[Rfam]
RNA sequence: UGGAAGGUGCUCCUCGAACUCGGCUGAUCUGUCCCUCGCAAGACACAUCAUCCCAGUUCAGGAGCACUUUUCACGUCACCGGCACGCCACCGCCAUGAAAUCUCGAGGCUAG
Numbered sequence: 001u002g003g004a005a006g007g008u009g010c011u012c013c014u015c016g017a018a019c020u021c022g023g024c025u026g027a028u029c030u031g032u033c034c035c036u037c038g039c040a041a042g043a044c045a046c047a048u049c050a051u052c053c054c055a056g057u058u059c060a061g062g063a064g065c066a067c068u069u070u071u072c073a074c075g076u077c078a079c080c081g082g083c084a085c086g087c088c089a090c091c092g093c094c095a096u097g098a099a100a101u102c103u104c105g106a107g108g109c110u111a112g
Base pairs, nucleotide, nucleotide: 002072003071004070005069006068007067008066009065010064011063012062013061016059017058019056020055022053023052025050026049027048028047030045032043033042098110101108102107
A member of the RNA family "Actinobacteria sRNA Ms_IGR-7" from Cellulomonas fimi, 112 nucleotides long. By type it is a small RNA. The source organism's lineage runs through Bacteria, Bacillati, Actinomycetota, Micrococcales and Cellulomonas. It scores 47 bits against the family's covariance model.